[Rfam]
A member of the RNA family "Small nucleolar RNA Z159/U59" from Spirodela intermedia, 89 nucleotides long. A search with the family's covariance model found it, with a score of 57 bits. The family has 10 seed sequences and 1,401 matches in Rfam 15.1.
RNA sequence: GUCUUCGAUGAUGAUGCAAAAAAAAAACUUUCGUUCUUCCUAGGAGCACAGCUCCGUGCGGAACCUUUGGAGACCUGAACUGAGGAGAU
Numbered sequence: 001g002u003c004u005u006c007g008a009u010g011a012u013g014a015u016g017c018a019a020a021a022a023a024a025a026a027a028c029u030u031u032c033g034u035u036c037u038u039c040c041u042a043g044g045a046g047c048a049c050a051g052c053u054c055c056g057u058g059c060g061g062a063a064c065c066u067u068u069g070g071a072g073a074c075c076u077g078a079a080c081u082g083a084g085g086a087g088a089u
Base pairs, nucleotide, nucleotide: 003087004086005085006084